[Rfam]
RNA sequence: GGUCCGGUGGCAGAAUGGCUUAUGCAGCGGACUGCAAAUCCGCGAAUGUGGGUUCAAUUCCCGCCCGGACCU
Numbered sequence: 001g002g003u004c005c006g007g008u009g010g011c012a013g014a015a016u017g018g019c020u021u022a023u024g025c026a027g028c029g030g031a032c033u034g035c036a037a038a039u040c041c042g043c044g045a046a047u048g049u050g051g052g053u054u055c056a057a058u059u060c061c062c063g064c065c066c067g068g069a070c071c072u
Stems, first nucleotide, its partner, number of pairs: 001071007010025003027043005048064005
The record is a 72-nucleotide RNA from Neokomagataea tanensis, which matches "tRNA" in Rfam. By type it is a transfer RNA. It scores 62 bits against the family's covariance model.